[Rfam]
RNA: Early nodulin 40
Organism: Arachis duranensis
RNA sequence: AUGAAGGUUCUAUGUUGGCAAAAAUCUAUCCAUGGAUCUUGAAAGAAGCAUGGAGUGUUAUAAGUGUGAAGAGGGUUUAUUUGUUGUUUCACCCCUCACACUCAUAAAACUCCAAAAACAGUUUGCUUUGGCUUAAGCUAUGUUAUUAGUUUUUCUAUGAUCACUAAAGGGGGGAAGAAGAAGAAGAAGAAGAUGAUGAUAAAGUCAUUCAUUCAUUCUUCUCCUUGAUAGAGGAUCAUAUAGACAAGCUAUGGCGGCGAAAGCUCCGGCGAACCGGCAAGUCACAAGAAGGCAAUGGAUUCCAUUAUGGGUCCC
Numbered sequence: 001a002u003g004a005a006g007g008u009u010c011u012a013u014g015u016u017g018g019c020a021a022a023a024a025u026c027u028a029u030c031c032a033u034g035g036a037u038c039u040u041g042a043a044a045g046a047a048g049c050a051u052g053g054a055g056u057g058u059u060a061u062a063a064g065u066g067u068g069a070a071g072a073g074g075g076u077u078u079a080u081u082u083g084u085u086g087u088u089u090c091a092c093c094c095c096u097c098a099c100a101c102u103c104a105u106a107a108a109a110c111u112c113c114a115a116a117a118a119c120a121g122u123u124u125g126c127u128u129u130g131g132c133u134u135a136a137g138c139u140a141u142g143u144u145a146u147u148a149g150u151u152u153u154u155c156u157a158u159g160a161u162c163a164c165u166a167a168a169g170g171g172g173g174g175a176a177g178a179a180g181a182a183g184a185a186g187a188a189g190a191a192g193a194u195g196a197u198g199a200u201a202a203a204g205u206c207a208u209u210c211a212u213u214c215a216u217u218c219u220u221c222u223c224c225u226u227g228a229u230a231g232a233g234g235a236u237c238a239u240a241u242a243g244a245c246a247a248g249c250u251a252u253g254g255c256g257g258c259g260a261a262a263g264c265u266c267c268g269g270c271g272a273a274c275c276g277g278c279a280a281g282u283c284a285c286a287a288g289a290a291g292g293c294a295a296u297g298g299a300u301u302c303c304a305u306u307a308u309g310g311g312u313c314c315c
Stems, first nucleotide, its partner, number of pairs: 066105003121274006139263001141261001298313005